[Rfam]
RNA sequence: GGUGCGGUCGGACGUUCGCGGGUCUCCGCGGAUCCCUGUGGCAGGGGCGCGCCAGAUCAUUAAUUGAUGCCCAUUGGGCAUGACUGGAGA
Numbered sequence: 001g002g003u004g005c006g007g008u009c010g011g012a013c014g015u016u017c018g019c020g021g022g023u024c025u026c027c028g029c030g031g032a033u034c035c036c037u038g039u040g041g042c043a044g045g046g047g048c049g050c051g052c053c054a055g056a057u058c059a060u061u062a063a064u065u066g067a068u069g070c071c072c073a074u075u076g077g078g079c080a081u082g083a084c085u086g087g088a089g090a
Stems, first nucleotide, its partner, number of pairs: 001053006014033007067081005
RNA: KDPG-aldolase RNA